[Rfam]
RNA sequence: UCGAUACCGCGAGGAGGACUCCAUGAAGAAGCUGCUCACCAUCGCCAUUGUCGCUGCUGCCGUGGUCGCCGUGCCGCUGGCACUGGCCCAGAAUGCCGGCCAGCCUGCGCCGCAGAAGGGCGACCAGGCCAACCCUGCGCAGUCCGAGGCUGAGGCCAAAGCCAAGCGCCGCGCGCAGGCCACCGCCGAAAUGAAGGCCAAGGGCCAGCAGGCGCCACAACGCGAAGAAGAAGAGGAAGAGGCGAAGAAGAAGCGAUAACGCCGCUGCCUUCCGCUUUCCAGCCCCGGUUUCCCCACCGGGGCUUUCUUUUUGCCUGAUGGCAG
Numbered sequence: 001u002c003g004a005u006a007c008c009g010c011g012a013g014g015a016g017g018a019c020u021c022c023a024u025g026a027a028g029a030a031g032c033u034g035c036u037c038a039c040c041a042u043c044g045c046c047a048u049u050g051u052c053g054c055u056g057c058u059g060c061c062g063u064g065g066u067c068g069c070c071g072u073g074c075c076g077c078u079g080g081c082a083c084u085g086g087c088c089c090a091g092a093a094u095g096c097c098g099g100c101c102a103g104c105c106u107g108c109g110c111c112g113c114a115g116a117a118g119g120g121c122g123a124c125c126a127g128g129c130c131a132a133c134c135c136u137g138c139g140c141a142g143u144c145c146g147a148g149g150c151u152g153a154g155g156c157c158a159a160a161g162c163c164a165a166g167c168g169c170c171g172c173g174c175g176c177a178g179g180c181c182a183c184c185g186c187c188g189a190a191a192u193g194a195a196g197g198c199c200a201a202g203g204g205c206c207a208g209c210a211g212g213c214g215c216c217a218c219a220a221c222g223c224g225a226a227g228a229a230g231a232a233g234a235g236g237a238a239g240a241g242g243c244g245a246a247g248a249a250g251a252a253g254c255g256a257u258a259a260c261g262c263c264g265c266u267g268c269c270u271u272c273c274g275c276u277u278u279c280c281a282g283c284c285c286c287g288g289u290u291u292c293c294c295c296a297c298c299g300g301g302g303c304u305u306u307c308u309u310u311u312u313g314c315c316u317g318a319u320g321g322c323a324g
Base pairs, nucleotide, nucleotide: 021236022235028167031162032161033158034157035154036153037152044066045065046064047063048062050060051059067122068121069120070119080104081103086100087099088098105115106114107113108112137150138149170224171223172222173221183196203216204215253322254321256319264268281304282303283302284301285300286299287298288297289296